[Rfam]
Rfam assigns this 261-nucleotide part of an RNA from Bulleidia extructa to the family "Bacterial large subunit ribosomal RNA". Lineage of the source: Bacteria > Bacillati > Erysipelotrichales > Bulleidia > Bulleidia extructa.
Nucleotides: 261
Stems, first nucleotide, its partner, number of pairs: 001159008011145004017045006047102005055096003062089005067082006106140003113133005162174003176259001179257004183199005204250003207246005213239002220233005
Number, partner (000 for none) and nucleotide at each position: 001159g002158g003157a004156a005155a006154u007153u008152u009000g010000a011145g012144g013143a014142g015000a016000g017045c018044u019043g020042c021041c022040c023000c024000u025000a026000g027000u028000a029000c030000g031000a032000g033000a034000g035000g036000a037000c038000c039000a040022g041021g042020g043019u044018g045017g046000a047102c048101a049100u050099u051098c052000c053000u054000a055096c056095g057094g058000u059000g060000c061000a062089c063088c064087a065086g066085u067082u068081g069080u070079c071078a072077c073000g074000c075000c076000a077072g078071u079070g080069g081068c082067a083000u084000a085066g086065c087064u088063g089062g090000a091000u092000a093000g094057c095056c096055g097000a098051g099050a100049a101048u102047g103000g104000a105000u106140c107139g108138g109000a110000u111000a112000a113133a114132c115131g116130c117129u118000g119000a120000a121000g122000g123000c124000a125000u126000c127000u128000a129117a130116g131115c132114g133113u134000g135000a136000a137000a138108c139107c140106g141000a142014c143013u144012c145011c146000a147000a148000g149000a150000u151000u152008a153007g154006a155005u156004u157003u158002c159001c160000c161000a162174u163173c164172a165000u166000u167000u168000c169000a170000a171000a172164u173163g174162a175000a176259u177000a178000a179257g180256a181255c182254c183199c184198c185197u186196u187195a188000a189000a190000g191000a192000c193000g194000a195187u196186g197185a198184g199183g200000u201000u202000g203000a204250u205249a206248g207246g208245u209244c210243a211242g212000g213239g214238a215000u216000g217000u218000a219000a220233g221232c222231a223230c224229a225000g226000u227000g228000a229224u230223g231222u232221g233220u234000u235000g236000a237000g238214u239213u240000g241000a242211c243210u244209g245208a246207u247000a248206c249205u250204a251000a252000u253000a254182g255181g256180u257179c258000g259176a260000a261000g